[Rfam]
RNA sequence: UCAUCACCGUCAUUAUUCCUGAACAUUCUUUCGGGCAUAAUGCGGUGUUCGGAAGAAAACUUCCGAGCAAGCGUUAGUUCUAAAAUAUUCAAUCUCUCGGAAGUGAUUUUCUACUUUCGAGAGAUUUUUUUU
Numbered sequence: 001u002c003a004u005c006a007c008c009g010u011c012a013u014u015a016u017u018c019c020u021g022a023a024c025a026u027u028c029u030u031u032c033g034g035g036c037a038u039a040a041u042g043c044g045g046u047g048u049u050c051g052g053a054a055g056a057a058a059a060c061u062u063c064c065g066a067g068c069a070a071g072c073g074u075u076a077g078u079u080c081u082a083a084a085a086u087a088u089u090c091a092a093u094c095u096c097u098c099g100g101a102a103g104u105g106a107u108u109u110u111c112u113a114c115u116u117u118c119g120a121g122a123g124a125u126u127u128u129u130u131u132u
Stems, first nucleotide, its partner, number of pairs: 008047003011042004018035005048067008091126015
The family of this 132-nucleotide RNA from Actinobacillus succinogenes is "Histidine operon leader". At least 6 amino acid operons are known to be regulated by attenuation. In each a leader sequence of 150-200 bp is found upstream of the first gene in the operon. The match comes from Rfam's covariance-model search (62 bits). A reference for the family is Kolter and Yanofsky (1982), "Attenuation in amino acid biosynthetic operons", Annu Rev Genet.